[Rfam]
RNA sequence: CUGACCGGCACCGCGCCGGUCGACUACCCGGGUACCUGGUACGGCCCGGGAG
Numbered sequence: 001c002u003g004a005c006c007g008g009c010a011c012c013g014c015g016c017c018g019g020u021c022g023a024c025u026a027c028c029c030g031g032g033u034a035c036c037u038g039g040u041a042c043g044g045c046c047c048g049g050g051a052g
Stems, first nucleotide, its partner, number of pairs: 002022008024052002027050007
Shown here is a 52-nucleotide sequence from Nocardioides sp. Leaf285, a member of the family "L17-Actino-Proteobacteria ribosomal protein leader". It scores 39 bits against the family's covariance model. The base pairs follow the family's consensus structure, which is taken from published work. By type it is a cis-regulatory leader. On this family, see Eckert and Weinberg, BMC Microbiol 2020: "Discovery of 20 novel ribosomal leader candidates in bacteria and archaea".